Shown here is a 73-nucleotide RNA sequence from Ramazzottius varieornatus, a member of the family "tRNA". Transfer RNA (tRNA) molecules are approximately 80 nucleotides in length. Their secondary structure includes four short double-helical elements and three loops (D, anti-codon, and T loops). Further hydrogen bonds mediate the characteristic L-shaped molecular structure. tRNAs have two regions of fundamental functional importance: the anti-codon, which is responsible for specific mRNA codon recognition, and the 3' end, to which the tRNAs corresponding amino acid is attached (by aminoacyl-tRNA synthetases). tRNAs cope with the degeneracy of the genetic code in two manners: having more than one tRNA (with a specific anti-codon) for a particular amino acid; and 'wobble' base-pairing, i.e. permitting non-standard base-pairing at the 3rd anti-codon position. The family's RNA type in Rfam is transfer RNA. Its family is annotated with triplet codon-amino acid adaptor activity in the Gene Ontology. Pairs were carried over by alignment from the consensus structure, which is taken from published work. The match comes from Rfam's covariance-model search (62 bits).
RNA sequence: GGCUCUGUGGCCCAAUGGUUAAGGCGCCUGACUACGAAUCAGGAGAUUCCGCGUUCGACUCGCGGCAGAGUCA
Numbered sequence: 001g002g003c004u005c006u007g008u009g010g011c012c013c014a015a016u017g018g019u020u021a022a023g024g025c026g027c028c029u030g031a032c033u034a035c036g037a038a039u040c041a042g043g044a045g046a047u048u049c050c051g052c053g054u055u056c057g058a059c060u061c062g063c064g065g066c067a068g069a070g071u072c073a
Stems, first nucleotide, its partner, number of pairs: 001072007010025003027043005049065005